[Rfam]
RNA: Small nucleolar RNA SNORA48
Organism: Ailuropoda melanoleuca
RNA sequence: AGUCUCUGACCUGAGUAGAUGGCAUCUGGUUGGUAGUGCCUGCCUCCUGUCAGCCAGGGUCAAAGCAACUCCUUGUUUGUCCCAGCUUGGCUUUUGGGCUGUGCCCGAGCCUGGUUCAUGCCCUGGACGCAUGG
Dot-bracket structure: .(.(((((..((((...((.(((((..........)))))....))...)))).))))).)............((((((.........(((...(((.(((.((....)).))).))).))).)))))).....
Numbered sequence: 001a002g003u004c005u006c007u008g009a010c011c012u013g014a015g016u017a018g019a020u021g022g023c024a025u026c027u028g029g030u031u032g033g034u035a036g037u038g039c040c041u042g043c044c045u046c047c048u049g050u051c052a053g054c055c056a057g058g059g060u061c062a063a064a065g066c067a068a069c070u071c072c073u074u075g076u077u078u079g080u081c082c083c084a085g086c087u088u089g090g091c092u093u094u095u096g097g098g099c100u101g102u103g104c105c106c107g108a109g110c111c112u113g114g115u116u117c118a119u120g121c122c123c124u125g126g127a128c129g130c131a132u133g134g
Stems, first nucleotide, its partner, number of pairs: 002061001004059005011053004018046002021040005074129006089122003095118003099114003103110002